RNA sequence: UAAGCUUAGCUGGUUGAACACGGGUCAAAUAUACUGCACGAUUGACGCAUUUGGUCCCCUUCAACCAGCUGUAGUUG
Numbered sequence: 001u002a003a004g005c006u007u008a009g010c011u012g013g014u015u016g017a018a019c020a021c022g023g024g025u026c027a028a029a030u031a032u033a034c035u036g037c038a039c040g041a042u043u044g045a046c047g048c049a050u051u052u053g054g055u056c057c058c059c060u061u062c063a064a065c066c067a068g069c070u071g072u073a074g075u076u077g
Base pairs, nucleotide, nucleotide: 003075008070009069010068011067012066013065014064015063016062017061018060022056023055025054026053027052028051029050030049
Shown here is a 77-nucleotide RNA sequence from Vespula pensylvanica, a member of the family "mir-133 microRNA precursor family". Rfam describes the family as follows. mir-133 was first experimentally characterised in mouse and homologues have since been discovered in several other species. The source organism's lineage runs through Eukaryota, Protostomia, Insecta, Vespinae and Vespula. The match comes from Rfam's covariance-model search (56 bits).